Record summary: A member of the RNA family "SAM (S-adenosyl methionine) riboswitch aptamer" from Nocardiopsis sp. L17-MgMaSL7, 108 nucleotides long. A search with the family's covariance model found it, with a score of 88 bits. Its family is annotated with S-adenosylmethionine metabolic process and regulation of gene expression in the Gene Ontology.
RNA sequence: GGUCAAGAGUUCCAGCGCGAAGUUCCGGCUCGCUGGACGGCAACCCUCCUGCACGGUGGGGUGCCCCGGAGACGACGACCCGGCUGCGUGACGCGGCAAGCGUGCGAC
Numbered sequence: 001g002g003u004c005a006a007g008a009g010u011u012c013c014a015g016c017g018c019g020a021a022g023u024u025c026c027g028g029c030u031c032g033c034u035g036g037a038c039g040g041c042a043a044c045c046c047u048c049c050u051g052c053a054c055g056g057u058g059g060g061g062u063g064c065c066c067c068g069g070a071g072a073c074g075a076c077g078a079c080c081c082g083g084c085u086g087c088g089u090g091a092c093g094c095g096g097c098a099a100g101c102g103u104g105c106g107a108c
Stems, first nucleotide, its partner, number of pairs: 001080004009038001011037006021030002039065003044061003048056002083097006
A reference for the family is Weinberg et al. (2008), "The aptamer core of SAM-IV riboswitches mimics the ligand-binding site of SAM-I riboswitches", RNA. The organism belongs to Nocardiopsis, within Bacteria.